[Rfam]
RNA: istR Hfq binding RNA
Organism: Salmonella enterica
RNA sequence: CAUCAAAAUUCGCGCCGAAAUUGCGCGUUCUGCACAGAACGCGUAUACUUCUGCUGUUGACAUAACACAGUGUGCUUCGCGGCUACCACCCGCAUUACGCUGUAAGAACCUCGCUUCGGCGAGGUUUUUU
Numbered sequence: 001c002a003u004c005a006a007a008a009u010u011c012g013c014g015c016c017g018a019a020a021u022u023g024c025g026c027g028u029u030c031u032g033c034a035c036a037g038a039a040c041g042c043g044u045a046u047a048c049u050u051c052u053g054c055u056g057u058u059g060a061c062a063u064a065a066c067a068c069a070g071u072g073u074g075c076u077u078c079g080c081g082g083c084u085a086c087c088a089c090c091c092g093c094a095u096u097a098c099g100c101u102g103u104a105a106g107a108a109c110c111u112c113g114c115u116u117c118g119g120c121g122a123g124g125u126u127u128u129u130u
Stems, first nucleotide, its partner, number of pairs: 003060004011056002017051003022045010068102004079093004104129011